[Rfam]
RNA sequence: CCGCUCCUACUUUCGGUUAUCUAGCUUUAUGAAGGAAGAGAAACACUCAUACAGCUAGAUAACCAAAGAUAGCAACCG
Numbered sequence: 001c002c003g004c005u006c007c008u009a010c011u012u013u014c015g016g017u018u019a020u021c022u023a024g025c026u027u028u029a030u031g032a033a034g035g036a037a038g039a040g041a042a043a044c045a046c047u048c049a050u051a052c053a054g055c056u057a058g059a060u061a062a063c064c065a066a067a068g069a070u071a072g073c074a075a076c077c078g
Stems, first nucleotide, its partner, number of pairs: 001078001003076001005074001007072003011068003015064012028051005
This 78-nucleotide RNA from Silurus meridionalis belongs to the Rfam family "mir-9/mir-79 microRNA precursor family". The base pairs follow the family's consensus structure, which was predicted with RNAalifold. On this family, see Lagos-Quintana et al., Science 2001: "Identification of novel genes coding for small expressed RNAs".